[Rfam]
RNA sequence: GCUUCGAAUGUUUGGAUCAUAAAUUAUUGAUGUGGUGAAUCCCCCUAUGCGGAGGGGCGACCAGUCAGUUACAGAAACCUGUAAAUGCAGCGCGGGUCAUGCCGACUGGGGCAUGCUCACCGGGAGGCACCCGGCACCACACUGCCACUAAACAUAUUUAAGAUUUAUGGCAGGUUUACUUUUGCGGUUGCCCUUCUAUGUUU
Numbered sequence: 001g002c003u004u005c006g007a008a009u010g011u012u013u014g015g016a017u018c019a020u021a022a023a024u025u026a027u028u029g030a031u032g033u034g035g036u037g038a039a040u041c042c043c044c045c046u047a048u049g050c051g052g053a054g055g056g057g058c059g060a061c062c063a064g065u066c067a068g069u070u071a072c073a074g075a076a077a078c079c080u081g082u083a084a085a086u087g088c089a090g091c092g093c094g095g096g097u098c099a100u101g102c103c104g105a106c107u108g109g110g111g112c113a114u115g116c117u118c119a120c121c122g123g124g125a126g127g128c129a130c131c132c133g134g135c136a137c138c139a140c141a142c143u144g145c146c147a148c149u150a151a152a153c154a155u156a157u158u159u160a161a162g163a164u165u166u167a168u169g170g171c172a173g174g175u176u177u178a179c180u181u182u183u184g185c186g187g188u189u190g191c192c193c194u195u196c197u198a199u200g201u202u203u
Base pairs, nucleotide, nucleotide: 016149031141032140033139034138035137036136037135042057043056044055045054046053065083087093088092094118095117096116097115100113101112120134121133122132123131124130161203162202163201164200173192174191175190179186

The record is a 203-nucleotide RNA sequence from Klebsiella phage ST846-OXA48phi9.1, which matches "Gammaproteobacterial sRNA STnc100" in Rfam. Rfam classes the family as a small RNA. The match comes from Rfam's covariance-model search (80 bits). NCBI's taxonomy places the organism under Viruses, Duplodnaviria, Heunggongvirae, Uroviricota, Caudoviricetes. Rfam 15.1 lists 137 matches to the family in 112 species. The base pairs follow the family's consensus structure, which was predicted with CMfinder.